Small nucleolar RNA SNORA68: a 130-nucleotide sequence. The family's consensus secondary structure was predicted with PFOLD. From the family's description: U68 is a member of the H/ACA class of small nucleolar RNAs (snoRNAs) which act as guides in the the modification of uridines to pseudouridines. On this family, see Ganot et al., Genes Dev 1997: "The family of box ACA small nucleolar RNAs is defined by an evolutionarily conserved secondary structure and ubiquitous sequence elements essential for RNA accumulation".
RNA sequence: UGCACACAAAAACCCAAAGAAUGUUGUUCCUCGUAAUGACGUUCUUGUCGUGUGUGCAGAUAUUAUAUGUAUCUUGUCGCCUUUCCAGAGCUGAGGUGCUCUUGAAAGUGAAACUUGAGGUUCUACAUGA
Numbered sequence: 001u002g003c004a005c006a007c008a009a010a011a012a013c014c015c016a017a018a019g020a021a022u023g024u025u026g027u028u029c030c031u032c033g034u035a036a037u038g039a040c041g042u043u044c045u046u047g048u049c050g051u052g053u054g055u056g057c058a059g060a061u062a063u064u065a066u067a068u069g070u071a072u073c074u075u076g077u078c079g080c081c082u083u084u085c086c087a088g089a090g091c092u093g094a095g096g097u098g099c100u101c102u103u104g105a106a107a108g109u110g111a112a113a114c115u116u117g118a119g120g121u122u123c124u125a126c127a128u129g130a
Stems, first nucleotide, its partner, number of pairs: 005056004019044010069123001071121005081108005087102005